[Rfam]
Background
Rfam assigns this 174-nucleotide sequence from Oryza barthii to the family "MIR807 microRNA precursor family". Taxonomically the source falls in Oryza (Eukaryota, Streptophytina, Petrosaviidae, Poales). For this family Rfam cites "Rice embryogenic calli express a unique set of microRNAs, suggesting regulatory roles of microRNAs in plant post-embryogenic development" (Luo et al., FEBS Lett, 2006). A search with the family's covariance model found it, with a score of 179 bits.
RNA sequence: AACCACACUAUUAAUGAAUGGAUUCACCCGUGAGAUGAUGUGGUUAUUUCAUCUAGGACGAGGACAUGGCAUCCUAUUACCAGCCAUCACACGAAAUUAAUAUAAUGCCACGUCCUCAUCCUAGAUAGAACAACCACGUCAUCUCACGUGAAUCCAUUCAUCGAUAGUGUAGUU
Numbered sequence: 001a002a003c004c005a006c007a008c009u010a011u012u013a014a015u016g017a018a019u020g021g022a023u024u025c026a027c028c029c030g031u032g033a034g035a036u037g038a039u040g041u042g043g044u045u046a047u048u049u050c051a052u053c054u055a056g057g058a059c060g061a062g063g064a065c066a067u068g069g070c071a072u073c074c075u076a077u078u079a080c081c082a083g084c085c086a087u088c089a090c091a092c093g094a095a096a097u098u099a100a101u102a103u104a105a106u107g108c109c110a111c112g113u114c115c116u117c118a119u120c121c122u123a124g125a126u127a128g129a130a131c132a133a134c135c136a137c138g139u140c141a142u143c144u145c146a147c148g149u150g151a152a153u154c155c156a157u158u159c160a161u162c163g164a165u166a167g168u169g170u171a172g173u174u
Base pairs, nucleotide, nucleotide: 001174002173003172005170006169007168009166010165011164012163014161015160017158018157019156021154022153023152024151025150026149030147031146032145033144035142036141037140038139039138041136042135043134044133045132047130048129051126052125054123055122057120058119063114064113065112069108070107071106072105075102076101077100078099079098086097087096